[Rfam]
RNA sequence: CUCUUAUCCAGAGAGGUGGAGGGACUGGCCCGAUGAAACCCGGCAACAGCCGUCUAUGAGACGGAAAUGUGCCAAUUCCUGCAGGCAAACUGCCUGAGAGAUAAGAG
Numbered sequence: 001c002u003c004u005u006a007u008c009c010a011g012a013g014a015g016g017u018g019g020a021g022g023g024a025c026u027g028g029c030c031c032g033a034u035g036a037a038a039c040c041c042g043g044c045a046a047c048a049g050c051c052g053u054c055u056a057u058g059a060g061a062c063g064g065a066a067a068u069g070u071g072c073c074a075a076u077u078c079c080u081g082c083a084g085g086c087a088a089a090c091u092g093c094c095u096g097a098g099a100g101a102u103a104a105g106a107g
Base pairs, nucleotide, nucleotide: 001107002106003105004104005103006102007101008100013041015040016039017038021031022030023029025081027079028078042073043072044071045070047069048068050064051063052062077099082096083095084094085093086092087091
RNA: SAM riboswitch aptamer (S box leader)